[Rfam]
RNA: engA RNA
RNA sequence: GCUCUAACUAGCACGUAGGGCUAACUCUCGCAGAGUGCGAGGGCUGAGGAAUGGUCUCCUCGGCAAUAUUAUUUAAGGUGCGUGACCUCACCUUAGCCGC
Numbered sequence: 001g002c003u004c005u006a007a008c009u010a011g012c013a014c015g016u017a018g019g020g021c022u023a024a025c026u027c028u029c030g031c032a033g034a035g036u037g038c039g040a041g042g043g044c045u046g047a048g049g050a051a052u053g054g055u056c057u058c059c060u061c062g063g064c065a066a067u068a069u070u071a072u073u074u075a076a077g078g079u080g081c082g083u084g085a086c087c088u089c090a091c092c093u094u095a096g097c098c099g100c
Stems, first nucleotide, its partner, number of pairs: 001021006026042006043064008074095007